[Rfam]
RNA sequence: CACCUCCCCGCGGGAGAGAGCGGCGAGGCCGGUCUGACCGGCUCCUGCCGCCGCCGAAGGCGCAACCGGCCCCCGGAAACGCUCAGGCAAAAGGACCGCGGCGGAGCA
Numbered sequence: 001c002a003c004c005u006c007c008c009c010g011c012g013g014g015a016g017a018g019a020g021c022g023g024c025g026a027g028g029c030c031g032g033u034c035u036g037a038c039c040g041g042c043u044c045c046u047g048c049c050g051c052c053g054c055c056g057a058a059g060g061c062g063c064a065a066c067c068g069g070c071c072c073c074c075g076g077a078a079a080c081g082c083u084c085a086g087g088c089a090a091a092a093g094g095a096c097c098g099c100g101g102c103g104g105a106g107c108a
Stems, first nucleotide, its partner, number of pairs: 006103001008101006020051006053088003056084002060082003066076002
Description: This 108-nucleotide RNA sequence from Acidiphilium cryptum belongs to the Rfam family "Glycine riboswitch aptamer".